[Rfam]
RNA: Xanthine riboswitch aptamer (NMT1 RNA)
RNA sequence: AGAGUGAGUAGAAGCGGUCAGUGCAGAACAUGGCAUGGGACAUUGCUCAGCAA
Dot-bracket structure: ....((((((....[..((.((((.(....).)))).]))...))))))....